[Rfam]
RNA: Bacterial RNase P class A
Organism: Micromonosporaceae bacterium
RNA sequence: CGAGUCGGCCGGGCGGCCGCGUCGGCGGGCAGGUCCCGCCGCCGAGGAACGUCCGGACUCCACAGGGCAGGGUGGUUGCUAACGGCAACCCGGGGCGACCCGCGGGACAGUGCCACAGAAAACAGACCGCCGGCCGGUUAUCGGCCGGUAAGGGUGAAACGGCGGGGUAAGAGCCCACCAGCACCCCGGGUGACCGGGGUGGCUCGGUAAACCCCACCCGGAGCAAGGCCAAGAAGGGCCACCGCCAGCCGGUGGUGGCCCGCGCAGGCGACCGAGGACGGCCCGUCCGAGCCUGCGGGUAGGCCGCUGGAGCCUGCCGGCGACGGCAGGCCGAGAUGGAUGGCCGCCGGCCGCCAGCCUGCCUCGGCAGGUGGGCGGUGCACAGAAUCCGGCGUACAGGCCGACUCGUCCG
Number, nucleotide and partner (000 for none) at each position: 001c408002g407003a406004g405005u404006c403007g402008g401009c400010c399011g397012g348013g347014c346015g345016g344017c343018c342019g000020c044021g043022u000023c041024g040025g039026c038027g037028g036029g000030c000031a000032g000033g000034u000035c000036c028037c027038g026039c025040c024041g023042c000043c021044g020045a000046g000047g000048a000049a395050c394051g393052u000053c392054c391055g390056g389057a388058c223059u222060c221061c220062a000063c000064a000065g284066g283067g282068c281069a000070g219071g218072g217073u216074g215075g089076u088077u087078g086079c085080u000081a000082a000083c000084g000085g079086c078087a077088a076089c075090c104091c102092g101093g100094g099095g000096c000097g000098a000099c094100c093101c092102g091103c000104g090105g214106g213107a000108c000109a000110g212111u211112g208113c207114c206115a000116c000117a000118g000119a000120a000121a000122a000123c000124a000125g000126a000127c153128c152129g149130c148131c147132g146133g145134c144135c143136g142137g141138u000139u000140a000141u137142c136143g135144g134145c133146c132147g131148g130149u129150a000151a000152g128153g127154g000155u000156g000157a000158a000159a000160c000161g179162g178163c000164g176165g175166g174167g000168u000169a000170a000171g000172a000173g000174c166175c165176c164177a000178c162179c161180a000181g203182c201183a200184c199185c198186c197187c196188g195189g194190g000191u000192g000193a000194c189195c188196g187197g186198g185199g184200u183201g182202g000203c181204u000205c000206g114207g113208u112209a000210a000211a111212c110213c106214c105215c074216a073217c072218c071219c070220g061221g060222a059223g058224c000225a000226a000227g305228g304229c303230c302231a000232a000233g000234a000235a000236g000237g000238g000239c000240c000241a000242c000243c000244g000245c000246c000247a000248g000249c000250c000251g000252g000253u000254g000255g000256u000257g000258g000259c000260c000261c000262g000263c000264g296265c295266a294267g293268g292269c291270g000271a000272c000273c000274g000275a000276g288277g287278a286279c285280g000281g068282c067283c066284c065285g279286u278287c277288c276289g000290a000291g269292c268293c267294u266295g265296c264297g000298g000299g000300u000301a000302g230303g229304c228305c227306g000307c000308u000309g000310g000311a000312g331313c330314c329315u328316g327317c326318c325319g324320g000321c000322g000323a000324c319325g318326g317327c316328a315329g314330g313331c312332c000333g000334a000335g000336a000337u000338g000339g000340a000341u000342g018343g017344c016345c015346g014347c013348c012349g000350g000351c000352c000353g000354c000355c000356a000357g000358c000359c000360u000361g000362c000363c000364u000365c000366g000367g000368c000369a000370g000371g000372u000373g000374g000375g000376c000377g000378g000379u000380g000381c000382a000383c000384a000385g000386a000387a000388u057389c056390c055391g054392g053393c051394g050395u049396a000397c011398a000399g010400g009401c008402c007403g006404a005405c004406u003407c002408g001409u000410c000411c000412g000